Rfam assigns this 126-nucleotide RNA from Corchorus olitorius to the family "mir-393 microRNA precursor family". The match comes from Rfam's covariance-model search (89 bits). NCBI's taxonomy places the organism under Eukaryota, Streptophyta, Gunneridae, Apeibeae, Corchorus.
RNA sequence: AGAGUAGACAUCCAAAGGGAUCGCAUUGAUCCUUUAUUAUAUAAAAGUUUUUCAAUGAAAAAACCCUUUUUUUGUUGUUAAAUUUUUAACAAUUUUGGAUCAUGCUAUCCCUUUGGAUUCCUCCUU
Numbered sequence: 001a002g003a004g005u006a007g008a009c010a011u012c013c014a015a016a017g018g019g020a021u022c023g024c025a026u027u028g029a030u031c032c033u034u035u036a037u038u039a040u041a042u043a044a045a046a047g048u049u050u051u052u053c054a055a056u057g058a059a060a061a062a063a064c065c066c067u068u069u070u071u072u073u074g075u076u077g078u079u080a081a082a083u084u085u086u087u088a089a090c091a092a093u094u095u096u097g098g099a100u101c102a103u104g105c106u107a108u109c110c111c112u113u114u115g116g117a118u119u120c121c122u123c124c125u126u
Base pairs, nucleotide, nucleotide: 002126003125004124006122010118011117012116013115014114015113016112017111018110019109020108021107023105024104025103026102028101029100030099031098032097036094